About this RNA:
This 68-nucleotide sequence from Sphaeramia orbicularis belongs to the Rfam family "miR-430 microRNA precursor family". The match comes from Rfam's covariance-model search (50 bits). The organism belongs to Sphaeramia, within Eukaryota. Gene Ontology terms of the family: miRNA-mediated post-transcriptional gene silencing and RISC complex.
[Rfam]
RNA sequence: AAGAUCACUUCAAAUCGAAGCACUGAUUAUUCUUUUCUACAUAAGUGCUUCUCUUUGGGGUUAUCUUU
Numbered sequence: 001a002a003g004a005u006c007a008c009u010u011c012a013a014a015u016c017g018a019a020g021c022a023c024u025g026a027u028u029a030u031u032c033u034u035u036u037c038u039a040c041a042u043a044a045g046u047g048c049u050u051c052u053c054u055u056u057g058g059g060g061u062u063a064u065c066u067u068u
Stems, first nucleotide, its partner, number of pairs: 004064002007061005014055001017051008026042001028041001